[Rfam]
RNA: MIR2118 microRNA precursor family
Organism: Leersia perrieri
RNA sequence: AUUGGGAAGAGGAAGAAUAGAUAGAGGGUCUGAGAGUGGUGGACAUGGGAACAUGAAGGAAAGCCCAAACUCUUCUGUUCCUCUUAAACUAGGGGUUAAGAUUUGGGUGACAUGUUUUCCUAAUGCCUCCCAUGCCUAUUGUUCUUAGAUGCUCCUUCCUCUUCCUUUUGGUU
Numbered sequence: 001a002u003u004g005g006g007a008a009g010a011g012g013a014a015g016a017a018u019a020g021a022u023a024g025a026g027g028g029u030c031u032g033a034g035a036g037u038g039g040u041g042g043a044c045a046u047g048g049g050a051a052c053a054u055g056a057a058g059g060a061a062a063g064c065c066c067a068a069a070c071u072c073u074u075c076u077g078u079u080c081c082u083c084u085u086a087a088a089c090u091a092g093g094g095g096u097u098a099a100g101a102u103u104u105g106g107g108u109g110a111c112a113u114g115u116u117u118u119c120c121u122a123a124u125g126c127c128u129c130c131c132a133u134g135c136c137u138a139u140u141g142u143u144c145u146u147a148g149a150u151g152c153u154c155c156u157u158c159c160u161c162u163u164c165c166u167u168u169u170g171g172u173u
Stems, first nucleotide, its partner, number of pairs: 009164005015158003024154003029149010040138003044134007052125003056121001058120007